RNA sequence: ACCUGAAAUACAUACUUCUUUACAUUCCAUAGCUUCGCAGGUCAUAUGGGCAUAUAAAGAAGUAUGUCUCCCGGGC
Numbered sequence: 001a002c003c004u005g006a007a008a009u010a011c012a013u014a015c016u017u018c019u020u021u022a023c024a025u026u027c028c029a030u031a032g033c034u035u036c037g038c039a040g041g042u043c044a045u046a047u048g049g050g051c052a053u054a055u056a057a058a059g060a061a062g063u064a065u066g067u068c069u070c071c072c073g074g075g076c
Stems, first nucleotide, its partner, number of pairs: 008069001010067013024053001027049005
mir-1 microRNA precursor family: a 76-nucleotide RNA sequence from Phyllostomus discolor. Rfam's curators write: This family represents the microRNA (miRNA) mir-1 family. miRNAs are transcribed as ~70nt precursors (modelled here) and subsequently processed by the Dicer enzyme to give a ~22nt product. In this case the mature sequence comes from the 3' arm of the precursor. The extents of the hairpin precursors are not generally known and are estimated based on hairpin prediction. The products are thought to have regulatory roles through complementarity to mRNA. The involvement of Dicer in miRNA processing suggests a relationship with the phenomenon of RNA interference. miRNAs are numbered based on the sequence of the mature RNA. This family also contains the mir-206 from human, which appears to be related to mir-1. The base pairs follow the family's consensus structure, which was predicted with RNAalifold.